[Rfam]
RNA sequence: UUACAAUUAAAGGAUAUUUCUUGCAGCCGAAUAUGAGAACAGAUGUGUCCUUUAAUUGUUUGGC
Numbered sequence: 001u002u003a004c005a006a007u008u009a010a011a012g013g014a015u016a017u018u019u020c021u022u023g024c025a026g027c028c029g030a031a032u033a034u035g036a037g038a039a040c041a042g043a044u045g046u047g048u049c050c051u052u053u054a055a056u057u058g059u060u061u062g063g064c
Stems, first nucleotide, its partner, number of pairs: 003059008012050006019043003024035002
Rfam assigns this 64-nucleotide RNA from Triplophysa tibetana to the family "mir-7552 microRNA precursor family". A search with the family's covariance model found it, with a score of 73 bits. NCBI's taxonomy places the organism under Eukaryota, Chordata, Teleostomi, Clupeocephala, Triplophysa.